About this RNA
This 49-nucleotide RNA sequence belongs to the Rfam family "nhaA-I RNA".

[Rfam]
RNA sequence: GGGUUCAGCCGCUAGGCUGGAGGGAUUCAGGAUGGUCGGGCCGCCAUUC
Numbered sequence: 001g002g003g004u005u006c007a008g009c010c011g012c013u014a015g016g017c018u019g020g021a022g023g024g025a026u027u028c029a030g031g032a033u034g035g036u037c038g039g040g041c042c043g044c045c046a047u048u049c
Base pairs, nucleotide, nucleotide: 005020006019007018008017009016010015030049031048032047033046034045035044036043
By type it is a riboswitch. The sequence is in the family's curated seed alignment. The base pairs follow the family's consensus structure, which is taken from published work. From the family's description: Acidobacteria, Alphaproteobacteria, Betaproteobacteria and Gammaproteobacteria, Verrucomicrobia, cand. division NC10.